[Rfam]
Background: Shown here is a 104-nucleotide sequence from Paraflavisolibacter caeni, a member of the family "TPP riboswitch aptamer (THI element)". Rfam links the family to the GO term thiamine pyrophosphate binding. The source organism's lineage runs through Bacteria, Bacteroidota, Chitinophagia, Chitinophagales and Paraflavisolibacter. The match comes from Rfam's covariance-model search (68 bits).
RNA sequence: CAGCGUUUCCCGGGGUGUUUUCCGCUUUUGGCGGUGAGACUGAGAUCAUACCCGUAGAACCUGAUCAGGGUAAUGCCUGCGCAGGGAGGAACUCCUCUCCCGUU
Numbered sequence: 001c002a003g004c005g006u007u008u009c010c011c012g013g014g015g016u017g018u019u020u021u022c023c024g025c026u027u028u029u030g031g032c033g034g035u036g037a038g039a040c041u042g043a044g045a046u047c048a049u050a051c052c053c054g055u056a057g058a059a060c061c062u063g064a065u066c067a068g069g070g071u072a073a074u075g076c077c078u079g080c081g082c083a084g085g086g087a088g089g090a091a092c093u094c095c096u097c098u099c100c101c102g103u104u
Base pairs, nucleotide, nucleotide: 007091008090009089010088011054012053013052014051016048017040018039019038020037021036060085061084062083063082066079067078068077069076